[Rfam]
RNA sequence: AAACCACCCCCUAAGUUUUGCAACUGUAGCAGUUUUGACCCCAAGAUCAAUUUUUUAUAAAAAAAAUUACACGUGGCACCUCACUUAGGGUGCCACGUCAGCGUAGACAGAGUCAAAAUUGACCUUGAGGGACAAAACUGCCACAAAUGCAAAACUUAGGGGGUGGUUU
Numbered sequence: 001a002a003a004c005c006a007c008c009c010c011c012u013a014a015g016u017u018u019u020g021c022a023a024c025u026g027u028a029g030c031a032g033u034u035u036u037g038a039c040c041c042c043a044a045g046a047u048c049a050a051u052u053u054u055u056u057a058u059a060a061a062a063a064a065a066a067u068u069a070c071a072c073g074u075g076g077c078a079c080c081u082c083a084c085u086u087a088g089g090g091u092g093c094c095a096c097g098u099c100a101g102c103g104u105a106g107a108c109a110g111a112g113u114c115a116a117a118a119u120u121g122a123c124c125u126u127g128a129g130g131g132a133c134a135a136a137a138c139u140g141c142c143a144c145a146a147a148u149g150c151a152a153a154a155c156u157u158a159g160g161g162g163g164u165g166g167u168u169u
Stems, first nucleotide, its partner, number of pairs: 001169002004166005012158011025145003029141009039131003042127003071098002074095007
RNA: MIR2619 microRNA precursor family
Organism: Medicago truncatula